[Rfam]
Bacterial RNase P class A: a 348-nucleotide sequence from Neomicrococcus aestuarii. Ribonuclease P (RNase P) is a ubiquitous endoribonuclease, found in archaea, bacteria and eukarya as well as chloroplasts and mitochondria. The family's RNA type in Rfam is ribozyme. It scores 320 bits against the family's covariance model. The organism belongs to Neomicrococcus, within Bacteria. Pairs were carried over by alignment from the consensus structure, which is taken from published work.

RNA sequence: UGGGUUGAGUGGACGGUCGCGUGUCGGAAACGACCCGAGGAACGUCCGGGCUCCACAGGACAGGGUGGUGGGUAACGCCCACUCGAGGUAACUCGCAGGAAAGUGCCACAGAAAACAAACCGCCGUUUCGGUAAGGGUGAAAAGGUGGUGUAAGAGACCACCAGCAGUUUGGGUGACCAGAUUGGCUAGGUAAACCCCACUUGGAGCAAGGUCAGAAAGGUUGCAUUCGAGGGCUGUCCGCCCGAGUAACCAGGUAGACCGCUUGAGGUUGUCGGCAACGGCAAUCCUAGAUGGAUGAUCGUCACGGCUUCGGCCGUACAGAACCCGGCGUACAGCUCAACCCAUCCA
Dot-bracket structure: ((((((((((((((((((.((.((((....)))).))....[[[.[[[[[((((...[[[[.((((((((((.....)))))(((((....)))).)((...(((((............((((((...))))..)).......((((((.......)))))).(((((((((....)))))))).)..)))..)))))))))))))...((((.....((((((......((((.]]]]))))..)))))).....))))......((((((((....))))))))..........)))))))....................]]]]]]]].).))))))))))....